Source information: The record is a 178-nucleotide RNA from Paraburkholderia tagetis, which matches "Burkholderia sRNA 7" in Rfam. The organism belongs to Paraburkholderia, within Bacteria. Rfam's curators write: Did not show any change in expression in iron-depletion and hydrogen peroxide (oxidative stress) treatment. Constitutively expressed. Possibly targets the GTPase, ObgE. The family's consensus secondary structure was predicted with R-scape. Rfam classes the family as a small RNA.
[Rfam]
RNA sequence: GUAUUCUUGCGCCCAUGAACUGCAUCCUGUCCGCUCUCCGACGUCGCCGCUCGCCCCUUCCCCAGGGCCUGGCUUAGUUCGAGAACGCGCGUUGUGCACGGGUUGAAUCCCCAACGGAAUCCCCAACGCGCAGGUAAGUUCGAAUCACGAAAGCCACGGCCAAGUCCGUGGCUUUUUG
Numbered sequence: 001g002u003a004u005u006c007u008u009g010c011g012c013c014c015a016u017g018a019a020c021u022g023c024a025u026c027c028u029g030u031c032c033g034c035u036c037u038c039c040g041a042c043g044u045c046g047c048c049g050c051u052c053g054c055c056c057c058u059u060c061c062c063c064a065g066g067g068c069c070u071g072g073c074u075u076a077g078u079u080c081g082a083g084a085a086c087g088c089g090c091g092u093u094g095u096g097c098a099c100g101g102g103u104u105g106a107a108u109c110c111c112c113a114a115c116g117g118a119a120u121c122c123c124c125a126a127c128g129c130g131c132a133g134g135u136a137a138g139u140u141c142g143a144a145u146c147a148c149g150a151a152a153g154c155c156a157c158g159g160c161c162a163a164g165u166c167c168g169u170g171g172c173u174u175u176u177u178g
Stems, first nucleotide, its partner, number of pairs: 007143002010091003014087001032081002040075002043073003049068002054065001150175010